This 101-nucleotide RNA sequence from Cavia porcellus belongs to the Rfam family "Vault RNA". The match comes from Rfam's covariance-model search (65 bits). The source organism's lineage runs through Eukaryota, Bilateria, Amniota, Hystricomorpha and Cavia. The family's consensus secondary structure is taken from published work.
[Rfam]
RNA sequence: GGGCUGGCUUUAGCCCAGGGGUUCCUUCGAGUCUGACUUUCCAGCCGCCCAGGCCGAUUGGUCUGGUGGUUCGAGACCCGCGGGAGCUCUCCAGUCCUUUA
Numbered sequence: 001g002g003g004c005u006g007g008c009u010u011u012a013g014c015c016c017a018g019g020g021g022u023u024c025c026u027u028c029g030a031g032u033c034u035g036a037c038u039u040u041c042c043a044g045c046c047g048c049c050c051a052g053g054c055c056g057a058u059u060g061g062u063c064u065g066g067u068g069g070u071u072c073g074a075g076a077c078c079c080g081c082g083g084g085a086g087c088u089c090u091c092c093a094g095u096c097c098u099u100u101a
Base pairs, nucleotide, nucleotide: 002096003095004094005093006092007091014084015083016082018081020079021078026075027074028073029072030071